RNA sequence: UCGUACUAGUCGGGGAGGCAGCGGUGCCCUGUACUUGCAACCCGCUAUAGCAAGGAUGAAUUCCCUUUUUCGGGUGGUCUAUUUUACGGUCUGGCUUAUGUAAGUGAUGAUGAGAAGUGGGUCUUGUGCAACGUAUCAGGUGUGAACCUCGUCAGGUCGGGAACGAAGCAGCGAUAAGUACCAGGGUGCGUGUGCCGCAAGGGUGCCUACUUUGAGUUAACUGCAUAUGCAUCGCGUAGGAUAGCCAUUCAACAUUGGGUGUACGG
Numbered sequence: 001u002c003g004u005a006c007u008a009g010u011c012g013g014g015g016a017g018g019c020a021g022c023g024g025u026g027c028c029c030u031g032u033a034c035u036u037g038c039a040a041c042c043c044g045c046u047a048u049a050g051c052a053a054g055g056a057u058g059a060a061u062u063c064c065c066u067u068u069u070u071c072g073g074g075u076g077g078u079c080u081a082u083u084u085u086a087c088g089g090u091c092u093g094g095c096u097u098a099u100g101u102a103a104g105u106g107a108u109g110a111u112g113a114g115a116a117g118u119g120g121g122u123c124u125u126g127u128g129c130a131a132c133g134u135a136u137c138a139g140g141u142g143u144g145a146a147c148c149u150c151g152u153c154a155g156g157u158c159g160g161g162a163a164c165g166a167a168g169c170a171g172c173g174a175u176a177a178g179u180a181c182c183a184g185g186g187u188g189c190g191u192g193u194g195c196c197g198c199a200a201g202g203g204u205g206c207c208u209a210c211u212u213u214g215a216g217u218u219a220a221c222u223g224c225a226u227a228u229g230c231a232u233c234g235c236g237u238a239g240g241a242u243a244g245c246c247a248u249u250c251a252a253c254a255u256u257g258g259g260u261g262u263a264c265g266g
Stems, first nucleotide, its partner, number of pairs: 001266006009057003012030004017025001019023001034054005063259003067254001069252002072250006079244010092231002097227005104221002106218003114213009123201006129192002132190005139182005149174004157166003
The family of this 266-nucleotide RNA sequence from a Clostridia bacterium is "Bacterial large signal recognition particle RNA". The source organism's lineage runs through Bacteria, Bacillati, Bacillota and Clostridia. The family's consensus secondary structure is taken from published work. Its Rfam clan is "SRP clan". The family's RNA type in Rfam is non-coding RNA gene. Rfam describes the family as follows. The signal recognition particle (SRP) is a universally conserved ribonucleoprotein involved in the co-translational targeting of proteins to membranes.